[Rfam]
RNA sequence: AUACGUCUUCGGGGCGGGGUGCGAUUCCCCACCGGCGGUAAGACCGGCAACGGUCGAGCCCGCGAGCGCUUUCCGAUAAGGAUUGGCAUUAGUAACCGUCGCGAGCAAGCUCAAUAUCGGCUUGAGUAGCGCAACUGUACGAAGGUACAGUGAGCAACGCAAAGUCGAGAGUGGGCUGCGCAGCAGGUUAAUAAGCCAAUCCGAGGAAAGGUCAGCAGAUCUGGUGUGACUCCAGAGCCGACGGUAUAGUCCGGAUGAAAGAAGAUGUGC
Numbered sequence: 001a002u003a004c005g006u007c008u009u010c011g012g013g014g015c016g017g018g019g020u021g022c023g024a025u026u027c028c029c030c031a032c033c034g035g036c037g038g039u040a041a042g043a044c045c046g047g048c049a050a051c052g053g054u055c056g057a058g059c060c061c062g063c064g065a066g067c068g069c070u071u072u073c074c075g076a077u078a079a080g081g082a083u084u085g086g087c088a089u090u091a092g093u094a095a096c097c098g099u100c101g102c103g104a105g106c107a108a109g110c111u112c113a114a115u116a117u118c119g120g121c122u123u124g125a126g127u128a129g130c131g132c133a134a135c136u137g138u139a140c141g142a143a144g145g146u147a148c149a150g151u152g153a154g155c156a157a158c159g160c161a162a163a164g165u166c167g168a169g170a171g172u173g174g175g176c177u178g179c180g181c182a183g184c185a186g187g188u189u190a191a192u193a194a195g196c197c198a199a200u201c202c203g204a205g206g207a208a209a210g211g212u213c214a215g216c217a218g219a220u221c222u223g224g225u226g227u228g229a230c231u232c233c234a235g236a237g238c239c240g241a242c243g244g245u246a247u248a249g250u251c252c253g254g255a256u257g258a259a260a261g262a263a264g265a266u267g268u269g270c
Stems, first nucleotide, its partner, number of pairs: 003268008017029003031250002033240002035063004058238002066216002220236005242253003
RNA: FMN riboswitch aptamer (RFN element)
Organism: Janthinobacterium sp. KBS0711